RNA: L31-Firmicutes ribosomal protein leader
Organism: Oceanobacillus picturae
RNA sequence: CUCUGUUUCAAAGGAUUCAGGGCAAAAAGGAG
Numbered sequence: 001c002u003c004u005g006u007u008u009c010a011a012a013g014g015a016u017u018c019a020g021g022g023c024a025a026a027a028a029g030g031a032g
Stems, first nucleotide, its partner, number of pairs: 001022005008015002